[Rfam]
RNA sequence: AAUUAUACUUCAACUUGAGCACCUUUCUUUUAUCAAACCACAGAAAGUGCUAUUAAGUUGGGGUCUGAUUU
Dot-bracket structure: ...((.(((((.(((.(((((.((.(((.............))).)))))).).).)).))))).))....
Numbered sequence: 001a002a003u004u005a006u007a008c009u010u011c012a013a014c015u016u017g018a019g020c021a022c023c024u025u026u027c028u029u030u031u032a033u034c035a036a037a038c039c040a041c042a043g044a045a046a047g048u049g050c051u052a053u054u055a056a057g058u059u060g061g062g063g064u065c066u067g068a069u070u071u
Stems, first nucleotide, its partner, number of pairs: 004067002007064005013058002015055001017053001018051004023047002026044003
Rfam assigns this 71-nucleotide sequence from Salmo salar to the family "miR-430 microRNA precursor family". Gene Ontology terms of the family: miRNA-mediated post-transcriptional gene silencing and RISC complex. Pairs were carried over by alignment from the consensus structure, which was predicted with RNAalifold.